[Rfam]
A member of the RNA family "rpsB sRNA" from Alsobacter metallidurans, 99 nucleotides long. The family's RNA type in Rfam is small RNA. The organism belongs to Alsobacter, within Bacteria. The literature on the family includes a 2009 paper in BMC Genomics by Meyer et al., "Identification of candidate structured RNAs in the marine organism 'Candidatus Pelagibacter ubique'".
RNA sequence: CACACGCGGACUUUCGGCUUCAUUGCCGUUCCGGUGCCACCCGGGCGAUAUCGCCCGGCUCACUGUCCGCGGAGGCUCAACCGGAGAAGUAGAACACCA
Numbered sequence: 001c002a003c004a005c006g007c008g009g010a011c012u013u014u015c016g017g018c019u020u021c022a023u024u025g026c027c028g029u030u031c032c033g034g035u036g037c038c039a040c041c042c043g044g045g046c047g048a049u050a051u052c053g054c055c056c057g058g059c060u061c062a063c064u065g066u067c068c069g070c071g072g073a074g075g076c077u078c079a080a081c082c083g084g085a086g087a088a089g090u091a092g093a094a095c096a097c098c099a
Stems, first nucleotide, its partner, number of pairs: 001074001003072001005071007015028003036059003